RNA sequence: CCGCCUCGCUAGGGGUCCUGGUGUGCGCACAAGCGCGCUGCCGGGUGAGAGAUACCCUUCGUACCUGAUCUGGAUAAUGCCAGCGAAGGAAAGCGCAACGCAGUUCCC
Numbered sequence: 001c002c003g004c005c006u007c008g009c010u011a012g013g014g015g016u017c018c019u020g021g022u023g024u025g026c027g028c029a030c031a032a033g034c035g036c037g038c039u040g041c042c043g044g045g046u047g048a049g050a051g052a053u054a055c056c057c058u059u060c061g062u063a064c065c066u067g068a069u070c071u072g073g074a075u076a077a078u079g080c081c082a083g084c085g086a087a088g089g090a091a092a093g094c095g096c097a098a099c100g101c102a103g104u105u106c107c108c
Base pairs, nucleotide, nucleotide: 007095008094009093010092011058012057013056014055016052017045018044019043020042021041022040023039064089065088066087070083071082072081073080
This 108-nucleotide RNA from Massilia sp. BSC265 belongs to the Rfam family "TPP riboswitch aptamer (THI element)". A search with the family's covariance model found it, with a score of 62 bits. Vitamin B(1) in its active form thiamin pyrophosphate (TPP) is an essential coenzyme that is synthesised by coupling of pyrimidine and thiazole moieties in bacteria. The organism belongs to Massilia, within Bacteria.